[Rfam]
RNA: DUF3800-VII RNA
RNA sequence: AGCGAACAUGCGCGGGAUAAACUCCAGGCCGUUAAGCCGACGGCAGCACUCUUGGAGGUGUGGGAUCCUGGAGCCUGGGGUUCGCUUUUUU
Numbered sequence: 001a002g003c004g005a006a007c008a009u010g011c012g013c014g015g016g017a018u019a020a021a022c023u024c025c026a027g028g029c030c031g032u033u034a035a036g037c038c039g040a041c042g043g044c045a046g047c048a049c050u051c052u053u054g055g056a057g058g059u060g061u062g063g064g065a066u067c068c069u070g071g072a073g074c075c076u077g078g079g080g081u082u083c084g085c086u087u088u089u090u091u
Stems, first nucleotide, its partner, number of pairs: 001086007011078001013077004022073006028044006047060004